A member of the RNA family "Group II catalytic intron D1-D4-5" from Blautia obeum, 198 nucleotides long. NCBI's taxonomy places the organism under Bacteria, Bacillati, Clostridia, Lachnospiraceae, Blautia. Rfam describes the family as follows. Group II introns are found in rRNA, tRNA and mRNA of organelles in fungi, plants and protists, and also in mRNA in bacteria. Pairs were carried over by alignment from the consensus structure. Its family is annotated with Group II intron splicing in the Gene Ontology. The literature on the family includes a 2001 paper in EMBO J by Chu et al., "Control of branch-site choice by a group II intron".
[Rfam]
RNA sequence: GAGAACUGAAUGCGUGAAUAGUCGAAUGAAGGGGUAACGCCCUGAAAGGCUACUCUAAUACUCCGGCUGGCAUGGAAAUGAGUAAACAUUGAAAUGUCAGAAGCCCGGUGAAGUCGGCAGAGAGAUACCGUAACAAUAGUAGUUGACGAAAGCUGUCCAGAGGUGGAUGGUGUAUCCUAUAUGCCGGGAGUCUAUAAA
Numbered sequence: 001g002a003g004a005a006c007u008g009a010a011u012g013c014g015u016g017a018a019u020a021g022u023c024g025a026a027u028g029a030a031g032g033g034g035u036a037a038c039g040c041c042c043u044g045a046a047a048g049g050c051u052a053c054u055c056u057a058a059u060a061c062u063c064c065g066g067c068u069g070g071c072a073u074g075g076a077a078a079u080g081a082g083u084a085a086a087c088a089u090u091g092a093a094a095u096g097u098c099a100g101a102a103g104c105c106c107g108g109u110g111a112a113g114u115c116g117g118c119a120g121a122g123a124g125a126u127a128c129c130g131u132a133a134c135a136a137u138a139g140u141a142g143u144u145g146a147c148g149a150a151a152g153c154u155g156u157c158c159a160g161a162g163g164u165g166g167a168u169g170g171u172g173u174a175u176c177c178u179a180u181a182u183g184c185c186g187g188g189a190g191u192c193u194a195u196a197a198a
Stems, first nucleotide, its partner, number of pairs: 019052005031043004053190004063108004067100007077090004115186005124176005129148003136144001152171008